[Rfam]
RNA: DUF3800-IV RNA
Organism: Mycobacteroides abscessus
RNA sequence: CCGGACGUCGAAGAGCCGGCCGCGGAUAGCCAGCGGUGCUGCCACCGCCGCCUUUAGGGGAUCGGCCCGCGGCGGUCCUUCGACGUCCGG
Numbered sequence: 001c002c003g004g005a006c007g008u009c010g011a012a013g014a015g016c017c018g019g020c021c022g023c024g025g026a027u028a029g030c031c032a033g034c035g036g037u038g039c040u041g042c043c044a045c046c047g048c049c050g051c052c053u054u055u056a057g058g059g060g061a062u063c064g065g066c067c068c069g070c071g072g073c074g075g076u077c078c079u080u081c082g083a084c085g086u087c088c089g090g
Base pairs, nucleotide, nucleotide: 001090002089003088004087005086006085007084008083009082010081011080012079013078015076016075017074018073020072021071022070023069024068025067029066030065031064033048034047035046036045037044038043051060052059